[Rfam]
A member of the RNA family "Nuclear RNase P" from Spizaetus tyrannus, 360 nucleotides long. For this family Rfam cites "Ribonuclease P: unity and diversity in a tRNA processing ribozyme" (Frank and Pace, Annu Rev Biochem, 1998). Rfam describes the family as follows. Ribonuclease P (RNase P) is a ubiquitous endoribonuclease, found in archaea, bacteria and eukarya as well as chloroplasts and mitochondria. Its best characterised activity is the generation of mature 5'-ends of tRNAs by cleaving the 5'-leader elements of precursor-tRNAs. Cellular RNase Ps are ribonucleoproteins. RNA from bacterial RNase Ps retains its catalytic activity in the absence of the protein subunit, i.e. it is a ribozyme. Lineage of the source: Eukaryota > Eumetazoa > Teleostomi > Neoaves > Spizaetus.
RNA sequence: UCCGGGGGAAGCUCACCGCCGAGGCCACCCACGGGGUGCCCGUCACCCACGCCCCGCCUCGGGGAAGGUCUGAGAGAAGGGCCGGCCGCGGCUCUAGCAGAGCCCCGCCCGCGAGGGGCGGGUGAGCCACCAGCAAGGGGGGGCGCCGCGGAUGAUGGGCCGGCCUGGGCAGGAGAAGCCGUAGCUGGUUCGUGGCGGGGGCAGCGGGGCCUCAAAAUCCCCCUCUCCCGCUCGCGAAACCCCGGCGGAUGCUCGUGGCCCCGCGGUGCUUUGAGACAGACUCACGGCCAGCCAUCGUUGAGUCCAAUGGGUGAGGUGGGGCAUCGCCCUACAACCCAAUUCAGACUACUCUCCCCCGGA
Numbered sequence: 001u002c003c004g005g006g007g008g009a010a011g012c013u014c015a016c017c018g019c020c021g022a023g024g025c026c027a028c029c030c031a032c033g034g035g036g037u038g039c040c041c042g043u044c045a046c047c048c049a050c051g052c053c054c055c056g057c058c059u060c061g062g063g064g065a066a067g068g069u070c071u072g073a074g075a076g077a078a079g080g081g082c083c084g085g086c087c088g089c090g091g092c093u094c095u096a097g098c099a100g101a102g103c104c105c106c107g108c109c110c111g112c113g114a115g116g117g118g119c120g121g122g123u124g125a126g127c128c129a130c131c132a133g134c135a136a137g138g139g140g141g142g143g144c145g146c147c148g149c150g151g152a153u154g155a156u157g158g159g160c161c162g163g164c165c166u167g168g169g170c171a172g173g174a175g176a177a178g179c180c181g182u183a184g185c186u187g188g189u190u191c192g193u194g195g196c197g198g199g200g201g202c203a204g205c206g207g208g209g210c211c212u213c214a215a216a217a218u219c220c221c222c223c224u225c226u227c228c229c230g231c232u233c234g235c236g237a238a239a240c241c242c243c244g245g246c247g248g249a250u251g252c253u254c255g256u257g258g259c260c261c262c263g264c265g266g267u268g269c270u271u272u273g274a275g276a277c278a279g280a281c282u283c284a285c286g287g288c289c290a291g292c293c294a295u296c297g298u299u300g301a302g303u304c305c306a307a308u309g310g311g312u313g314a315g316g317u318g319g320g321g322c323a324u325c326g327c328c329c330u331a332c333a334a335c336c337c338a339a340u341u342c343a344g345a346c347u348a349c350u351c352u353c354c355c356c357c358g359g360a
Base pairs, nucleotide, nucleotide: 001360002359003358004357007354008353009352012315013314014313015312016311017310020061021060022059023058024057034048035047036046037045038044070344071343072342073341074340080289081288082287083286090104091103092102093101094100105121106120107119108118109117110116122285123284124283125282126281128279142270143269144268145267146266147265148264149263150262151261316332317331318330319329320328321327322326